[Rfam]
The family of this 197-nucleotide sequence from Brachypteracias leptosomus is "Small nucleolar RNA SNORA74". The match comes from Rfam's covariance-model search (90 bits). Lineage of the source: Eukaryota > Eumetazoa > Teleostomi > Brachypteraciidae > Brachypteracias. Rfam links the family to the GO terms nucleolus and RNA processing. It is annotated as an H/ACA-box small nucleolar RNA. The family's consensus secondary structure was predicted with PFOLD. U19 belongs to the H/ACA class of snoRNAs. snoRNAs bind a number of proteins (including dyskerin, Gar1p and Nop10p in the case of the H/ACA class) to form snoRNP complexes. This class are thought to guide the sites of modification of uridines to pseudouridines by forming direct base pairing interactions with substrate RNAs. Clan: SNORA74 clan.

RNA sequence: UCCAGUGGUAGUCAGCUGUCCAGAGCAGUACUGUGCCUGUGUUACACUGCUGGGAGAUAAGGAUCAGUCACUUUUUCUGGCUGCUGUUGUCACUGUUCUGGAGACAGCUGAUGCCAGAAGGAAGUGGCAUUGUGCUUCCCUGAGAGUGCACUAAAGAUUUGCUUUCCUUCUUCAGUGCUAGUCUGGAAGCAUACAUA
Numbered sequence: 001u002c003c004a005g006u007g008g009u010a011g012u013c014a015g016c017u018g019u020c021c022a023g024a025g026c027a028g029u030a031c032u033g034u035g036c037c038u039g040u041g042u043u044a045c046a047c048u049g050c051u052g053g054g055a056g057a058u059a060a061g062g063a064u065c066a067g068u069c070a071c072u073u074u075u076u077c078u079g080g081c082u083g084c085u086g087u088u089g090u091c092a093c094u095g096u097u098c099u100g101g102a103g104a105c106a107g108c109u110g111a112u113g114c115c116a117g118a119a120g121g122a123a124g125u126g127g128c129a130u131u132g133u134g135c136u137u138c139c140c141u142g143a144g145a146g147u148g149c150a151c152u153a154a155a156g157a158u159u160u161g162c163u164u165u166c167c168u169u170c171u172u173c174a175g176u177g178c179u180a181g182u183c184u185g186g187a188a189g190c191a192u193a194c195a196u197a
Stems, first nucleotide, its partner, number of pairs: 001054009011045002015040002018037001020035001021033003025029001062130001065127001067125002076118006084110001086108001088106004093101002132192008148178003152174001154172004